Rfam assigns this 84-nucleotide sequence to the family "S10-Clostridia ribosomal protein leader".
The sequence is in the family's curated seed alignment.
On this family, see Eckert and Weinberg, BMC Microbiol 2020: "Discovery of 20 novel ribosomal leader candidates in bacteria and archaea".
Pairs were carried over by alignment from the consensus structure, which is taken from published work.

RNA sequence: UGAUAGCGUUGAAGCGCGAGGUUGCCGCUGAGAAACAGCGGGUUUUCCGUGGAGCGAAUGUCAAGUUAAAGAAACUGGCGACAA
Numbered sequence: 001u002g003a004u005a006g007c008g009u010u011g012a013a014g015c016g017c018g019a020g021g022u023u024g025c026c027g028c029u030g031a032g033a034a035a036c037a038g039c040g041g042g043u044u045u046u047c048c049g050u051g052g053a054g055c056g057a058a059u060g061u062c063a064a065g066u067u068a069a070a071g072a073a074a075c076u077g078g079c080g081a082c083a084a
Stems, first nucleotide, its partner, number of pairs: 014050003018047004025041005059083004065079004